[Rfam]
RNA sequence: CAAACGGCCCUUUUAAGGGCCACUAAUUUAUCACGUAAGAGUUGU
Numbered sequence: 001c002a003a004a005c006g007g008c009c010c011u012u013u014u015a016a017g018g019g020c021c022a023c024u025a026a027u028u029u030a031u032c033a034c035g036u037a038a039g040a041g042u043u044g045u
Base pairs, nucleotide, nucleotide: 006021007020008019009018010017011016

The record is a 45-nucleotide sequence from Culex quinquefasciatus, which matches "Histone 3' UTR stem-loop" in Rfam. It is annotated as a cis-regulatory element. NCBI's taxonomy places the organism under Eukaryota, Bilateria, Mandibulata, Culex, Culex pipiens complex. From the family's description: The mRNAs of metazoan histone genes lack a poly-A tail. 3' end processing occurs at a site between a highly conserved stem-loop (modelled by this family) and a purine rich region around 20 nts downstream (the histone downstream element, or HDE). The stem-loop is bound by a 31 kDa stem-loop binding protein (SLBP - also termed the histone hairpin binding protein, or HBP). Together with U7 snRNA binding of the HDE, SLBP binding nucleate s the formation of the processing complex.